RNA sequence: AUGUAAUUUUCGCUGAAUUUUCUUAUCGAAAAACGGGGGAACCAAUUUUCUUGGGGUGAAUGAGGGUAUAGUUACUGUACUUUCUAGGGCAAUUCUCGCUGUCCGAAUCCGCCAGUUAACCUCGUAAGCGAUCGUGGGGAGGACCA
Numbered sequence: 001a002u003g004u005a006a007u008u009u010u011c012g013c014u015g016a017a018u019u020u021u022c023u024u025a026u027c028g029a030a031a032a033a034c035g036g037g038g039g040a041a042c043c044a045a046u047u048u049u050c051u052u053g054g055g056g057u058g059a060a061u062g063a064g065g066g067u068a069u070a071g072u073u074a075c076u077g078u079a080c081u082u083u084c085u086a087g088g089g090c091a092a093u094u095c096u097c098g099c100u101g102u103c104c105g106a107a108u109c110c111g112c113c114a115g116u117u118a119a120c121c122u123c124g125u126a127a128g129c130g131a132u133c134g135u136g137g138g139g140a141g142g143a144c145c146a
Base pairs, nucleotide, nucleotide: 011130012129013128014127018032019031020030033125034124035123036122037121038120043053044052054110055109056108062084063083064082065081066080067079068078087104088103089102090101